Shown here is a 112-nucleotide RNA sequence from Candidatus Kuenenia stuttgartensis, a member of the family "Group II catalytic intron D1-D4-2". The literature on the family includes a 2001 paper in EMBO J by Chu et al., "Control of branch-site choice by a group II intron".

RNA sequence: GAAGUAUCGGCAACGCCAUACAGGUGGGGUUGCCAAACCGCUCUACGCUGCAAAAGCUGCAAAGCUGCUGUAGUGAACGGAUAGAGAAAAGGUGGAAGAAAAUCCAUCAGGU
Numbered sequence: 001g002a003a004g005u006a007u008c009g010g011c012a013a014c015g016c017c018a019u020a021c022a023g024g025u026g027g028g029g030u031u032g033c034c035a036a037a038c039c040g041c042u043c044u045a046c047g048c049u050g051c052a053a054a055a056g057c058u059g060c061a062a063a064g065c066u067g068c069u070g071u072a073g074u075g076a077a078c079g080g081a082u083a084g085a086g087a088a089a090a091g092g093u094g095g096a097a098g099a100a101a102a103u104c105c106a107u108c109a110g111g112u
Base pairs, nucleotide, nucleotide: 009034010033011032012031013030014029016027017026018025019024039111041086042085043084044083045082046080047074048073050071051070052069055066056065057064091108092107093106094105095104096103